[Rfam]
RNA sequence: UAAGCAGGGAUUGUGUGACUCUGUUGUGUUACAUAUAAAAGCUCUUUGUUUCGCAAAGAUUUCCCUGCUGAAAAAGAAACUGUCAGGGGAAAAUGGGGAGCUGUGUUUGAUAUAACAUGUUGAAAUCUCAACUAUGAUCUCCAUAUCG
Numbered sequence: 001u002a003a004g005c006a007g008g009g010a011u012u013g014u015g016u017g018a019c020u021c022u023g024u025u026g027u028g029u030u031a032c033a034u035a036u037a038a039a040a041g042c043u044c045u046u047u048g049u050u051u052c053g054c055a056a057a058g059a060u061u062u063c064c065c066u067g068c069u070g071a072a073a074a075a076g077a078a079a080c081u082g083u084c085a086g087g088g089g090a091a092a093a094u095g096g097g098g099a100g101c102u103g104u105g106u107u108u109g110a111u112a113u114a115a116c117a118u119g120u121u122g123a124a125a126u127c128u129c130a131a132c133u134a135u136g137a138u139c140u141c142c143a144u145a146u147c148g
Base pairs, nucleotide, nucleotide: 004068005067006066007065008064009063010062015044017042019041020040086142087141088140089139090138094137096135100132102130103129

Shown here is a 148-nucleotide sequence from Salix dunnii, a member of the family "small nucleolar RNA snoR135". NCBI's taxonomy places the organism under Eukaryota, Spermatophyta, eudicotyledons, Malpighiales, Salix. For this family Rfam cites "Mining small RNA sequencing data: a new approach to identify small nucleolar RNAs in Arabidopsis" (Chen and Wu, Nucleic Acids Res, 2009). The family's consensus secondary structure was predicted with RNAalifold. By type it is an H/ACA-box small nucleolar RNA.